[Rfam]
Annotation: The family of this 101-nucleotide RNA sequence from Holtiella tumoricola is "Purine riboswitch aptamer". Taxonomically the source falls in Holtiella (Bacteria, Bacillota, Clostridia, Lachnospirales). The base pairs follow the family's consensus structure, which is taken from published work. Rfam 15.1 lists 4,097 matches to the family in 1,411 species. A reference for the family is Mandal et al. (2003), "Riboswitches Control Fundamental Biochemical Pathways in Bacillus subtilis and Other Bacteria", Cell.
RNA sequence: AAAAACAGAAACAACAUUUUUCGUAUAUACUUGGCAAUUGGGCCGAGAGUAUCUACCCACUUACCGUAAAUAAGUGGACUACGAGGAAGUUAAUAAGGUAU
Numbered sequence: 001a002a003a004a005a006c007a008g009a010a011a012c013a014a015c016a017u018u019u020u021u022c023g024u025a026u027a028u029a030c031u032u033g034g035c036a037a038u039u040g041g042g043c044c045g046a047g048a049g050u051a052u053c054u055a056c057c058c059a060c061u062u063a064c065c066g067u068a069a070a071u072a073a074g075u076g077g078a079c080u081a082c083g084a085g086g087a088a089g090u091u092a093a094u095a096a097g098g099u100a101u
Stems, first nucleotide, its partner, number of pairs: 018087008030047006057077007